[Rfam]
RNA sequence: GGGAUAUGAUGAGUGGUCAAAACUCACAAAUUUUUGUGAGAGGGGUGUCCGCCCAAGCCUGGUUACGACACAGGGGCACUCCAAUAUUUUACCAUCUGAUCCC
Number, nucleotide and partner (000 for none) at each position: 001g103002g102003g101004a100005u000006a000007u000008g000009a000010u000011g000012a000013g000014u094015g093016g092017u091018c000019a000020a000021a000022a000023c040024u039025c038026a037027c036028a000029a000030a000031u000032u000033u000034u000035u000036g027037u026038g025039a024040g023041a000042g082043g081044g080045g079046u078047g077048u075049c074050c000051g000052c000053c000054c000055a000056a000057g000058c000059c000060u073061g000062g071063u070064u000065a000066c000067g000068a000069c000070a063071c062072a000073g060074g049075g048076g000077c047078a046079c045080u044081c043082c042083a000084a000085u000086a000087u000088u000089u000090u000091a017092c016093c015094a014095u000096c000097u000098g000099a000100u004101c003102c002103c001
This 103-nucleotide RNA from Thalictrum thalictroides belongs to the Rfam family "Small nucleolar RNA Z279/snoR105/snoR108". On this family, see Marker et al., Curr Biol 2002: "Experimental RNomics: identification of 140 candidates for small non-messenger RNAs in the plant Arabidopsis thaliana". It scores 91 bits against the family's covariance model. Pairs were carried over by alignment from the consensus structure, which was predicted with PFOLD. The family has 20 seed sequences and 906 matches in Rfam 15.1. By type it is a C/D-box small nucleolar RNA. This family includes the plant snoRNAs known as Z279, snoR105 and snoR108.